[Rfam]
RNA sequence: UGAUGUAAGUGUCAAAAGUAUAAUUUCGUUUGUGUUCGCACAAAUAAGCUAUUUACACUUAUUUACACGUUGAGCACUGAAAACAGAAUAAAACGGUGUAAAUACGUCAUUUUAUGUAAGUUUGAGGUGUUCGAGAAUUGCAUGAAUCGCAUAGCAAUGAAGCAAUCUGGUUAGAUCA
Numbered sequence: 001u002g003a004u005g006u007a008a009g010u011g012u013c014a015a016a017a018g019u020a021u022a023a024u025u026u027c028g029u030u031u032g033u034g035u036u037c038g039c040a041c042a043a044a045u046a047a048g049c050u051a052u053u054u055a056c057a058c059u060u061a062u063u064u065a066c067a068c069g070u071u072g073a074g075c076a077c078u079g080a081a082a083a084c085a086g087a088a089u090a091a092a093a094c095g096g097u098g099u100a101a102a103u104a105c106g107u108c109a110u111u112u113u114a115u116g117u118a119a120g121u122u123u124g125a126g127g128u129g130u131u132c133g134a135g136a137a138u139u140g141c142a143u144g145a146a147u148c149g150c151a152u153a154g155c156a157a158u159g160a161a162g163c164a165a166u167c168u169g170g171u172u173a174g175a176u177c178a
Stems, first nucleotide, its partner, number of pairs: 001178004006173002010067003016060004021055002023052002027048001029046001030043005071133008081123004088115006135168001137166005146158002149155001